[Rfam]
RNA sequence: CCAUAUUUCGAGUUUUGUGCGUGAAUCUAAUAAAACUGUAAUCCAUACACAAAAAAUGUGGAUUUGUUUCAUGUUAGAUUCACGCACAAACUCGUAAUCUGUCU
Numbered sequence: 001c002c003a004u005a006u007u008u009c010g011a012g013u014u015u016u017g018u019g020c021g022u023g024a025a026u027c028u029a030a031u032a033a034a035a036c037u038g039u040a041a042u043c044c045a046u047a048c049a050c051a052a053a054a055a056a057u058g059u060g061g062a063u064u065u066g067u068u069u070c071a072u073g074u075u076a077g078a079u080u081c082a083c084g085c086a087c088a089a090a091c092u093c094g095u096a097a098u099c100u101g102u103c104u
Stems, first nucleotide, its partner, number of pairs: 002101002005098003011092003015089013029075003